The family of this 54-nucleotide RNA sequence from Ciceribacter lividus is "COG3860 RNA". Taxonomically the source falls in Ciceribacter (Bacteria, Pseudomonadota, Hyphomicrobiales, Rhizobiaceae). By type it is a cis-regulatory element.
RNA sequence: GGGUCCGCAGUUCACCCAGGCGUCACCGCUCCUUGACGAGUGCUAAACCUGCUC
Numbered sequence: 001g002g003g004u005c006c007g008c009a010g011u012u013c014a015c016c017c018a019g020g021c022g023u024c025a026c027c028g029c030u031c032c033u034u035g036a037c038g039a040g041u042g043c044u045a046a047a048c049c050u051g052c053u054c
Stems, first nucleotide, its partner, number of pairs: 001017004029040003